Description: Rfam assigns this 87-nucleotide RNA sequence from Triticum aestivum to the family "MIR1120/MIR1122 microRNA precursor family". It scores 89 bits against the family's covariance model. The family's consensus secondary structure was predicted with RNAalifold. Rfam 15.1 lists 44,765 matches to the family in 8 species. The literature on the family includes a 2007 paper in Genome Biol by Yao et al., "Cloning and characterization of microRNAs from wheat (Triticum aestivum L.)".
RNA sequence: AUACUCCCUCUGUAAAGAAAUAUAAGAGUGUUUAGAUCACUACUUUAGUGAUCUAAACACUUUUAUAUUUAUUUACGGAGGGAGUAC
Numbered sequence: 001a002u003a004c005u006c007c008c009u010c011u012g013u014a015a016a017g018a019a020a021u022a023u024a025a026g027a028g029u030g031u032u033u034a035g036a037u038c039a040c041u042a043c044u045u046u047a048g049u050g051a052u053c054u055a056a057a058c059a060c061u062u063u064u065a066u067a068u069u070u071a072u073u074u075a076c077g078g079a080g081g082g083a084g085u086a087c
Stems, first nucleotide, its partner, number of pairs: 003085003007081005013075004019069023